[Rfam]
RNA sequence: UGUCUGUAAUGGACACAAAAUUUGGAAGGCAUCAGAAUCUUACACAGACCAACGCAUGUGGUUCUUAAUGAACAAUUACUUGAAGUGCCCAGUCCGAACAUGGCGGUGGCUUCCCACUCGUGCAGGUAACUCACGAUGCUGCGUGAAGCCUUAAGCAAUGAAGAUUACCGCUUCAGGGGGGUUUCACCUCGCAGAGCAGUCUUCACCGUGGUGUGGCGGUGUUGGAUUACAAUUGAAGUAAUUUGGGUGGGCCGUGUGAGUUGAUUAUCGACCAUGUUUUU
Numbered sequence: 001u002g003u004c005u006g007u008a009a010u011g012g013a014c015a016c017a018a019a020a021u022u023u024g025g026a027a028g029g030c031a032u033c034a035g036a037a038u039c040u041u042a043c044a045c046a047g048a049c050c051a052a053c054g055c056a057u058g059u060g061g062u063u064c065u066u067a068a069u070g071a072a073c074a075a076u077u078a079c080u081u082g083a084a085g086u087g088c089c090c091a092g093u094c095c096g097a098a099c100a101u102g103g104c105g106g107u108g109g110c111u112u113c114c115c116a117c118u119c120g121u122g123c124a125g126g127u128a129a130c131u132c133a134c135g136a137u138g139c140u141g142c143g144u145g146a147a148g149c150c151u152u153a154a155g156c157a158a159u160g161a162a163g164a165u166u167a168c169c170g171c172u173u174c175a176g177g178g179g180g181g182u183u184u185c186a187c188c189u190c191g192c193a194g195a196g197c198a199g200u201c202u203u204c205a206c207c208g209u210g211g212u213g214u215g216g217c218g219g220u221g222u223u224g225g226a227u228u229a230c231a232a233u234u235g236a237a238g239u240a241a242u243u244u245g246g247g248u249g250g251g252c253c254g255u256g257u258g259a260g261u262u263g264a265u266u267a268u269c270g271a272c273c274a275u276g277u278u279u280u281u
Base pairs, nucleotide, nucleotide: 001015002014003013004012018279019278020277021276023274024273025272040259041258042257043256044255045254047252049250050249051248059075061073062072063071064070076241077240078239079238080237081236083234084233086231087230089225090224091223092222093221094219095218096217098214099213100212101211103209104208105207106206108150110148111147112146113145114141115138118136119135120134121133122132124131125130151155159205160204161203162202163201164200165199170197171196172195173194178189179188180187